[Rfam]
Background: The family of this 152-nucleotide RNA sequence from Bacillus sp. MUM 13 is "c-di-AMP riboswitch aptamer (ydaO/yuaA leader)". Taxonomically the source falls in Bacillus (Bacteria, Bacillati, Bacillota, Caryophanales).
RNA sequence: AUUCAAUUUCCGCUUAAUCUUGUUAUUGAGAACGGGGGAACCAACUUUGCGGUGUAUUCCGCUUGGGGUGAAUUCUGACUUCAGAAAGGGCUAAUGUGUGUUUCCGGGCCCUAACCCGACAGCUAACCUCGUCAGCGUCUUAAAGGGAACAG
Numbered sequence: 001a002u003u004c005a006a007u008u009u010c011c012g013c014u015u016a017a018u019c020u021u022g023u024u025a026u027u028g029a030g031a032a033c034g035g036g037g038g039a040a041c042c043a044a045c046u047u048u049g050c051g052g053u054g055u056a057u058u059c060c061g062c063u064u065g066g067g068g069u070g071a072a073u074u075c076u077g078a079c080u081u082c083a084g085a086a087a088g089g090g091c092u093a094a095u096g097u098g099u100g101u102u103u104c105c106g107g108g109c110c111c112u113a114a115c116c117c118g119a120c121a122g123c124u125a126a127c128c129u130c131g132u133c134a135g136c137g138u139c140u141u142a143a144a145g146g147g148a149a150c151a152g
Base pairs, nucleotide, nucleotide: 011137012136013135014134018031019030020029032132033131034130035129036128037127042065043064066117067116068115074085075084076083077082088111089110090109091108